RNA: c-di-AMP riboswitch aptamer (ydaO/yuaA leader)
RNA sequence: AACAUAAACAAGCCUAAAUUCCAAAAUGGAAUACGGGGGAUACAAUUAUUUGGGGUUAAUCUUUUAAUAUAAAAAGUAGGGUCUCCUAUCCCAAACCCGUCAGCUAACCUCGUAGGCACACUAUAGGGGGGUA
Numbered sequence: 001a002a003c004a005u006a007a008a009c010a011a012g013c014c015u016a017a018a019u020u021c022c023a024a025a026a027u028g029g030a031a032u033a034c035g036g037g038g039g040a041u042a043c044a045a046u047u048a049u050u051u052g053g054g055g056u057u058a059a060u061c062u063u064u065u066a067a068u069a070u071a072a073a074a075a076g077u078a079g080g081g082u083c084u085c086c087u088a089u090c091c092c093a094a095a096c097c098c099g100u101c102a103g104c105u106a107a108c109c110u111c112g113u114a115g116g117c118a119c120a121c122u123a124u125a126g127g128g129g130g131g132u133a
Stems, first nucleotide, its partner, number of pairs: 012117003018032003033113006043052002053098003061076004079092003
Dot-bracket structure: ...........(((...(((.........)))((((((....((......))(((.....((((........))))..(((........)))...))).........)))))).)))................